[Rfam]
This 145-nucleotide RNA from Pelotomaculum thermopropionicum belongs to the Rfam family "Ribosomal protein L10 leader".
The family's consensus secondary structure was predicted with CMfinder.
The family's RNA type in Rfam is cis-regulatory leader.
RNA sequence: AUAUAUACGGAAAAUCUGCUGUAGACAACUGGUGCCUGCGGGCAUAAUGGCUUCAAGCCGCCAGUCGAGGCAUGGGGAAAAACCUGACGUUUUUGCAAACGCCGGGCCUCUGUGCUUGUCUGCAGAGGCCCUUUUAGUUGCCGGC
Numbered sequence: 001a002u003a004u005a006u007a008c009g010g011a012a013a014a015u016c017u018g019c020u021g022u023a024g025a026c027a028a029c030u031g032g033u034g035c036c037u038g039c040g041g042g043c044a045u046a047a048u049g050g051c052u053u054c055a056a057g058c059c060g061c062c063a064g065u066c067g068a069g070g071c072a073u074g075g076g077g078a079a080a081a082a083c084c085u086g087a088c089g090u091u092u093u094u095g096c097a098a099a100c101g102c103c104g105g106g107c108c109u110c111u112g113u114g115c116u117u118g119u120c121u122g123c124a125g126a127g128g129c130c131c132u133u134u135u136a137g138u139u140g141c142c143g144g145c
Stems, first nucleotide, its partner, number of pairs: 028065006034043003105130010

It scores 52 bits against the family's covariance model. Its family is annotated with regulation of gene expression in the Gene Ontology. Lineage of the source: Bacteria > Bacillati > Bacillota > Desulfotomaculaceae > Pelotomaculum thermopropionicum.